[Rfam]
RNA sequence: UUUACAGAGCCAUUUUGGCAUUCUGUCUACCUCCAUCUGAAACAAUCAGGACAUGCAUUGUCCGGUAAGUUUGGAGGUGGACAGCAUGUCAAACUGUCUGUGUGAA
Numbered sequence: 001u002u003u004a005c006a007g008a009g010c011c012a013u014u015u016u017g018g019c020a021u022u023c024u025g026u027c028u029a030c031c032u033c034c035a036u037c038u039g040a041a042a043c044a045a046u047c048a049g050g051a052c053a054u055g056c057a058u059u060g061u062c063c064g065g066u067a068a069g070u071u072u073g074g075a076g077g078u079g080g081a082c083a084g085c086a087u088g089u090c091a092a093a094c095u096g097u098c099u100g101u102g103u104g105a106a
Base pairs, nucleotide, nucleotide: 011096015092016091017090018089019088020087024083025082026081027080028079029078030077031076032075033074034073
MIR394 microRNA precursor family: a 106-nucleotide RNA sequence from Protea cynaroides.
Pairs were carried over by alignment from the consensus structure, which was predicted with WAR.